[Rfam]
Nucleotides: 065
Stems, first nucleotide, its partner, number of pairs: 001065007009057005017049011029037001
Number, partner (000 for none) and nucleotide at each position: 001065g002064c003063c004062g005061g006060u007059c008000c009057u010056c011055g012054g013053u014000a015000g016000u017049g018048g019047c020046g021045c022044u023043c024042g025041g026040a027039c028000a029037c030000g031000c032000a033000c034000a035000c036000c037029g038000c039027g040026u041025c042024c043023g044022g045021g046020u047019g048018c049017u050000u051000c052000g053013a054012u055011c056010g057009a058000a059007g060006a061005c062004c063003g064002g065001c

This 65-nucleotide RNA from Streptomyces tardus belongs to the Rfam family "Actino-pnp RNA". The organism belongs to Streptomyces, within Bacteria.